[Rfam]
RNA sequence: UUUUUUAGGGAAAGUUUGGCCUUGGAGCAAGGGAAGGCCAGGGCAUUUCCUU
Numbered sequence: 001u002u003u004u005u006u007a008g009g010g011a012a013a014g015u016u017u018g019g020c021c022u023u024g025g026a027g028c029a030a031g032g033g034a035a036g037g038c039c040a041g042g043g044c045a046u047u048u049c050c051u052u
Base pairs, nucleotide, nucleotide: 008052009051010050012048013047014046015042016041017040018039019038020037021036022035023034
Annotation
Rfam assigns this 52-nucleotide RNA from Lentivirus humimdef1 to the family "HIV Ribosomal frameshift signal". About the family: This family represents the HIV Ribosomal frameshift signal. HIV uses a system called -1 ribosomal frameshifting to produce the required ratio of Gag and Gag-Pol polyproteins. The stem-loop structure of the frameshift signal is thought to impede the ribosome and cause slippage in the 5' direction, this causes the -1 frameshift and translation then continues in the new frame. Rfam classes the family as a frameshift element. Rfam's curators put it in the seed alignment. For this family Rfam cites "Structure of the HIV-1 frameshift site RNA bound to a small molecule inhibitor of viral replication" (Marcheschi et al., ACS Chem Biol, 2011).